This 87-nucleotide sequence from Pseudolycoriella hygida belongs to the Rfam family "mir-276 microRNA precursor family". Gene Ontology terms of the family: miRNA-mediated post-transcriptional gene silencing and RISC complex.
RNA sequence: AUUGAAUGUUGCCACUAGCGAGGUAUAGAGUUCCUACGUGAUUUAAAAAAUCGUAGGAACUUCAUACCGUGCUCUUGGAGCUUCAAA
Numbered sequence: 001a002u003u004g005a006a007u008g009u010u011g012c013c014a015c016u017a018g019c020g021a022g023g024u025a026u027a028g029a030g031u032u033c034c035u036a037c038g039u040g041a042u043u044u045a046a047a048a049a050a051u052c053g054u055a056g057g058a059a060c061u062u063c064a065u066a067c068c069g070u071g072c073u074c075u076u077g078g079a080g081c082u083u084c085a086a087a
Stems, first nucleotide, its partner, number of pairs: 012078003017073004022068005028062010

NCBI's taxonomy places the organism under Eukaryota, Metazoa, Arthropoda, Pancrustacea, Pseudolycoriella. The family has 42 seed sequences and 200 matches in Rfam 15.1. A reference for the family is Li et al. (2009), "Direct sequencing and expression analysis of a large number of miRNAs in Aedes aegypti and a multi-species survey of novel mosquito miRNAs", BMC Genomics.